[Rfam]
About this RNA:
A member of the RNA family "Small nucleolar RNA SNORD71" from Chrysochloris asiatica, 86 nucleotides long. From the family's description: snoRNA HBII-239 belongs to the family of C/D snoRNAs.It is the human orthologue of the mouse MBII-239 described and is predicted to guide 2'O-ribose methylation of 5.8S rRNA on residue U14. Rfam 15.1 lists 556 matches to the family in 528 species.

RNA sequence: UAUGUGCUGGAGGAUGAAACCAAUGAGUGAUCCAUCGGCUAAGUGUUUUAUCACAAUGCUGAAACUCGAAUUGCUGACAGCACACA
Numbered sequence: 001u002a003u004g005u006g007c008u009g010g011a012g013g014a015u016g017a018a019a020c021c022a023a024u025g026a027g028u029g030a031u032c033c034a035u036c037g038g039c040u041a042a043g044u045g046u047u048u049u050a051u052c053a054c055a056a057u058g059c060u061g062a063a064a065c066u067c068g069a070a071u072u073g074c075u076g077a078c079a080g081c082a083c084a085c086a
Base pairs, nucleotide, nucleotide: 003084004083005082006081007080008079009075010074012033013032014031015030017028035062036061037060038059039058043054044053045052
Dot-bracket structure: ..((((((((.((((.(..........).)))).(((((...(((......)))...)))))...........))...))))))..